mir-15 microRNA precursor family: an 81-nucleotide RNA sequence from Equus caballus. The family's consensus secondary structure was predicted with RNAalifold. Rfam describes the family as follows. This family represents the related mir-15a and mir-15b sequences. Its family is annotated with miRNA-mediated post-transcriptional gene silencing and RISC complex in the Gene Ontology. Lineage of the source: Eukaryota > Vertebrata > Tetrapoda > Laurasiatheria > Equus.

RNA sequence: GUUCCGCUCUAGCAGCACGUAAAUAUUGGCGUAGUGAAAUAAAUAUUAAACACCAAUAUUAUUGUGCUGCUUUAGCGUGGC
Numbered sequence: 001g002u003u004c005c006g007c008u009c010u011a012g013c014a015g016c017a018c019g020u021a022a023a024u025a026u027u028g029g030c031g032u033a034g035u036g037a038a039a040u041a042a043a044u045a046u047u048a049a050a051c052a053c054c055a056a057u058a059u060u061a062u063u064g065u066g067c068u069g070c071u072u073u074a075g076c077g078u079g080g081c
Stems, first nucleotide, its partner, number of pairs: 001081002011071009022060008031051002